[Rfam]
RNA sequence: AAGACUGUAUUUUCAGGAAUCAUUUCUAUAGUUCUUUACUUGGAAAUGUGUUUUGAAAGUGUUUGUCUUCCAACCCACGAUGAUGAGGUGUAAUGCUCUUUUCUGAGAGUGAGUCAAGGGUAGAACUGUGAAUUUAGUCACAAUCUGUCGUUGAUGAGCGUUAAUAUUGUUUUUGGCAAUGUUGAAGAAAGGGGUAUGAUCUGAGUGGU
Numbered sequence: 001a002a003g004a005c006u007g008u009a010u011u012u013u014c015a016g017g018a019a020u021c022a023u024u025u026c027u028a029u030a031g032u033u034c035u036u037u038a039c040u041u042g043g044a045a046a047u048g049u050g051u052u053u054u055g056a057a058a059g060u061g062u063u064u065g066u067c068u069u070c071c072a073a074c075c076c077a078c079g080a081u082g083a084u085g086a087g088g089u090g091u092a093a094u095g096c097u098c099u100u101u102u103c104u105g106a107g108a109g110u111g112a113g114u115c116a117a118g119g120g121u122a123g124a125a126c127u128g129u130g131a132a133u134u135u136a137g138u139c140a141c142a143a144u145c146u147g148u149c150g151u152u153g154a155u156g157a158g159c160g161u162u163a164a165u166a167u168u169g170u171u172u173u174u175g176g177c178a179a180u181g182u183u184g185a186a187g188a189a190a191g192g193g194g195u196a197u198g199a200u201c202u203g204a205g206u207g208g209u
Stems, first nucleotide, its partner, number of pairs: 001041003007034001009032003015027004049065002054061001075208004093197012107161001109159001119149002123145002127142005164183001166180005
Small nucleolar RNA U3: a 209-nucleotide sequence from Sinocyclocheilus rhinocerous. Small nucleolar RNAs (snoRNAs) are involved in the processing and modification of rRNA in the nucleolus. On this family, see Marz and Stadler, RNA Biol 2010: "Comparative analysis of eukaryotic U3 snoRNA". Its Rfam clan is "U3 clan". The base pairs follow the family's consensus structure, which is taken from published work.